Saccharopolyspora sRNA 350: a 506-nucleotide RNA sequence from Actinokineospora alba. The match comes from Rfam's covariance-model search (138 bits). Lineage of the source: Bacteria > Bacillati > Actinomycetota > Pseudonocardiaceae > Actinokineospora. A reference for the family is Liu et al. (2013), "Prediction and characterization of small non-coding RNAs related to secondary metabolites in Saccharopolyspora erythraea", PLoS One. The family's consensus secondary structure was predicted with RNAfold. Rfam links the family to the GO term regulation of secondary metabolite biosynthetic process.
[Rfam]
RNA sequence: CGGACGCUGUAGUCCCAGAUUCGCUCGUCGACCAGGCCCCACUGGUCGAAGUACUCGCCGUCGGCGAGGACGCCCACCACGGCCUCGUCGUCGUACUCGCCCGCGGCCCGCUGCUCGGCCCGCCCGUGCGCGAGGACGAGGAAGCGGUCCUCGGCGUGGCCCCACUCCACGAUGGUGUCGCCCGCGGCGUACUCCUCCUGCGUGAACAGGCCCGCGAGCGCGCCGAGCACGUCCUCGUCCUCGAAGUCGCGCAGGCAGGCCAGCUCGCGAAGGUCGCCCGCGACGACGCGGGCCGUGGCGCCGGACCGGUCGACGGCGAUGCGGCCGUCGCCCACGGUGUAGCUGCGCCGCUGGUUGACGCGGUACGUACCACCGGUGACCUGCACCCACGGCAGUUUGCGCAGCAGCCACCGCGAGGUGAUCUCCUGCAUCUGCGGCGCGGAUUUCGUUGUGGUCGCGAGGUUGCGCGCCGCCGCAGUGCUCAAGCUCUGCUGUGCGGCCUCCGG
Numbered sequence: 001c002g003g004a005c006g007c008u009g010u011a012g013u014c015c016c017a018g019a020u021u022c023g024c025u026c027g028u029c030g031a032c033c034a035g036g037c038c039c040c041a042c043u044g045g046u047c048g049a050a051g052u053a054c055u056c057g058c059c060g061u062c063g064g065c066g067a068g069g070a071c072g073c074c075c076a077c078c079a080c081g082g083c084c085u086c087g088u089c090g091u092c093g094u095a096c097u098c099g100c101c102c103g104c105g106g107c108c109c110g111c112u113g114c115u116c117g118g119c120c121c122g123c124c125c126g127u128g129c130g131c132g133a134g135g136a137c138g139a140g141g142a143a144g145c146g147g148u149c150c151u152c153g154g155c156g157u158g159g160c161c162c163c164a165c166u167c168c169a170c171g172a173u174g175g176u177g178u179c180g181c182c183c184g185c186g187g188c189g190u191a192c193u194c195c196u197c198c199u200g201c202g203u204g205a206a207c208a209g210g211c212c213c214g215c216g217a218g219c220g221c222g223c224c225g226a227g228c229a230c231g232u233c234c235u236c237g238u239c240c241u242c243g244a245a246g247u248c249g250c251g252c253a254g255g256c257a258g259g260c261c262a263g264c265u266c267g268c269g270a271a272g273g274u275c276g277c278c279c280g281c282g283a284c285g286a287c288g289c290g291g292g293c294c295g296u297g298g299c300g301c302c303g304g305a306c307c308g309g310u311c312g313a314c315g316g317c318g319a320u321g322c323g324g325c326c327g328u329c330g331c332c333c334a335c336g337g338u339g340u341a342g343c344u345g346c347g348c349c350g351c352u353g354g355u356u357g358a359c360g361c362g363g364u365a366c367g368u369a370c371c372a373c374c375g376g377u378g379a380c381c382u383g384c385a386c387c388c389a390c391g392g393c394a395g396u397u398u399g400c401g402c403a404g405c406a407g408c409c410a411c412c413g414c415g416a417g418g419u420g421a422u423c424u425c426c427u428g429c430a431u432c433u434g435c436g437g438c439g440c441g442g443a444u445u446u447c448g449u450u451g452u453g454g455u456c457g458c459g460a461g462g463u464u465g466c467g468c469g470c471c472g473c474c475g476c477a478g479u480g481c482u483c484a485a486g487c488u489c490u491g492c493u494g495u496g497c498g499g500c501c502u503c504c505g506g
Stems, first nucleotide, its partner, number of pairs: 006387001008385005015378001018325001022321001025319005032312001033309001035307002038304002045299004051230002054227004059222003062110003065105001072100001074099001076097001079094005113219004119214001123210002126207002128203005134196002139193002145189002158182003161175002165171001231293004237287003241283002249277003253274001256272001258268001259266001326339004348376003352372003358368003388428002391425002394422001396420001398418001400415003404412001434473004439468003443464001444462006474505002479498001481496001483494002